RNA sequence: CCUGCGCGACAGGGGCGUCCGGGGAUCCGGGCUGAGAAGCACCCUUUGAACCUGAACCAGAUAAUGCUGGCGUAGGGAGUCUGCGGUAGAUGCCC
Numbered sequence: 001c002c003u004g005c006g007c008g009a010c011a012g013g014g015g016c017g018u019c020c021g022g023g024g025a026u027c028c029g030g031g032c033u034g035a036g037a038a039g040c041a042c043c044c045u046u047u048g049a050a051c052c053u054g055a056a057c058c059a060g061a062u063a064a065u066g067c068u069g070g071c072g073u074a075g076g077g078a079g080u081c082u083g084c085g086g087u088a089g090a091u092g093c094c095c
Stems, first nucleotide, its partner, number of pairs: 008081003011045004016039001017032005051076004057070004
Source information:
The record is a 95-nucleotide RNA sequence from Pseudorhodobacter antarcticus, which matches "TPP riboswitch aptamer (THI element)" in Rfam. Pairs were carried over by alignment from the consensus structure, which is taken from published work.